This 597-nucleotide RNA belongs to the Rfam family "ROOL RNA". Rfam's curators put it in the seed alignment. Pairs were carried over by alignment from the consensus structure, which is taken from published work. About the family: Firmicutes, Fusobacteria (1 example), Tenericutes (1 example).
[Rfam]
RNA sequence: AGAGUUUGUAUUUUAAUUAAGCACCUCGGUUAUAAAACUCAAUGCCAUGAGUCCGAGAAGCACUCUAGUCACAUAUGACAAAUUAGAGAAGUGCAUUUGACGGAUACGUUUCUUGUACUUCUUUUUAUAAUGAAGUGAUUUAUUAUGAACAAGAGAAAACUUCUCAAGUAAGUGGGUGCUGUGCAACAUUAUAAUCUGGUUAAUGCACGAAACUUUUCGCUGGCGCAAUAGACGCUCCUGUGGAGAAUAAUCUACUUCAAUGCAUAGUGUGGCAGCUGUGUAGAAGGUAGAAAGCCAAACAAGUCAGUUUGAUAUGAAACUGUUUAAAAGACAGUGUAUAAGAAAAGUCGUCGGUACGUCGCUCAAGUCAGUGUAGGUAUAAAAAAGAAUGUAUGCUAAUAGAGUAUAUGAUAACAAAACUUAAUUCUGAAUGGUGGGUUGAUGUUACAUGUAUUGAUCAUGUCGCAGAUUUUGGUCUUUGAGACUCUGGUGAGAAGUUAGAGGUAGCUCCUCGAAGCUCAGACUCAUCAGCUGUGUUGCAGAAUAAACUAUUUUAUUAAUGAUUGUAGGAUGAAGAUCCGCUUUAAAAUUAAAAUA
Numbered sequence: 001a002g003a004g005u006u007u008g009u010a011u012u013u014u015a016a017u018u019a020a021g022c023a024c025c026u027c028g029g030u031u032a033u034a035a036a037a038c039u040c041a042a043u044g045c046c047a048u049g050a051g052u053c054c055g056a057g058a059a060g061c062a063c064u065c066u067a068g069u070c071a072c073a074u075a076u077g078a079c080a081a082a083u084u085a086g087a088g089a090a091g092u093g094c095a096u097u098u099g100a101c102g103g104a105u106a107c108g109u110u111u112c113u114u115g116u117a118c119u120u121c122u123u124u125u126u127a128u129a130a131u132g133a134a135g136u137g138a139u140u141u142a143u144u145a146u147g148a149a150c151a152a153g154a155g156a157a158a159a160c161u162u163c164u165c166a167a168g169u170a171a172g173u174g175g176g177u178g179c180u181g182u183g184c185a186a187c188a189u190u191a192u193a194a195u196c197u198g199g200u201u202a203a204u205g206c207a208c209g210a211a212a213c214u215u216u217u218c219g220c221u222g223g224c225g226c227a228a229u230a231g232a233c234g235c236u237c238c239u240g241u242g243g244a245g246a247a248u249a250a251u252c253u254a255c256u257u258c259a260a261u262g263c264a265u266a267g268u269g270u271g272g273c274a275g276c277u278g279u280g281u282a283g284a285a286g287g288u289a290g291a292a293a294g295c296c297a298a299a300c301a302a303g304u305c306a307g308u309u310u311g312a313u314a315u316g317a318a319a320c321u322g323u324u325u326a327a328a329a330g331a332c333a334g335u336g337u338a339u340a341a342g343a344a345a346a347g348u349c350g351u352c353g354g355u356a357c358g359u360c361g362c363u364c365a366a367g368u369c370a371g372u373g374u375a376g377g378u379a380u381a382a383a384a385a386a387g388a389a390u391g392u393a394u395g396c397u398a399a400u401a402g403a404g405u406a407u408a409u410g411a412u413a414a415c416a417a418a419a420c421u422u423a424a425u426u427c428u429g430a431a432u433g434g435u436g437g438g439u440u441g442a443u444g445u446u447a448c449a450u451g452u453a454u455u456g457a458u459c460a461u462g463u464c465g466c467a468g469a470u471u472u473u474g475g476u477c478u479u480u481g482a483g484a485c486u487c488u489g490g491u492g493a494g495a496a497g498u499u500a501g502a503g504g505u506a507g508c509u510c511c512u513c514g515a516a517g518c519u520c521a522g523a524c525u526c527a528u529c530a531g532c533u534g535u536g537u538u539g540c541a542g543a544a545u546a547a548a549c550u551a552u553u554u555u556a557u558u559a560a561u562g563a564u565u566g567u568a569g570g571a572u573g574a575a576g577a578u579c580c581g582c583u584u585u586a587a588a589a590u591u592a593a594a595a596u597a
Stems, first nucleotide, its partner, number of pairs: 007594001009592002012589003016585001020584002025057005037052005059180006087122006094115002099110004124149011153165005187581001190560001194555001199550001201548001204547001208353003212348007219308006235245004251291006261282007270297003309371005319335005357444001361439005426523004465535003468485001476483001488531001490529001494525001497519001499516001501513004569580004